[Rfam]
A member of the RNA family "Small nucleolar RNA U109" from Chinchilla lanigera, 136 nucleotides long. The organism belongs to Chinchilla, within Eukaryota. Gene Ontology terms of the family: RNA processing and nucleolus. A search with the family's covariance model found it, with a score of 151 bits. By type it is an H/ACA-box small nucleolar RNA.
RNA sequence: UGGCAUGUGGAAAUGCCUUCUCCUCAUUCCUUUAGGAGCAGGAAUACAUCCCUAACAUGCUACAUUAAAAAAAGGAGUUCUCAGGGCUGCCAACCUUAGAGGAGAGGUUGAGUGGCAGUAUAUUUCUCCUACAUUA
Numbered sequence: 001u002g003g004c005a006u007g008u009g010g011a012a013a014u015g016c017c018u019u020c021u022c023c024u025c026a027u028u029c030c031u032u033u034a035g036g037a038g039c040a041g042g043a044a045u046a047c048a049u050c051c052c053u054a055a056c057a058u059g060c061u062a063c064a065u066u067a068a069a070a071a072a073a074g075g076a077g078u079u080c081u082c083a084g085g086g087c088u089g090c091c092a093a094c095c096u097u098a099g100a101g102g103a104g105a106g107g108u109u110g111a112g113u114g115g116c117a118g119u120a121u122a123u124u125u126c127u128c129c130u131a132c133a134u135u136a
Stems, first nucleotide, its partner, number of pairs: 003060006016042003020038004074129004086116002090112001091110007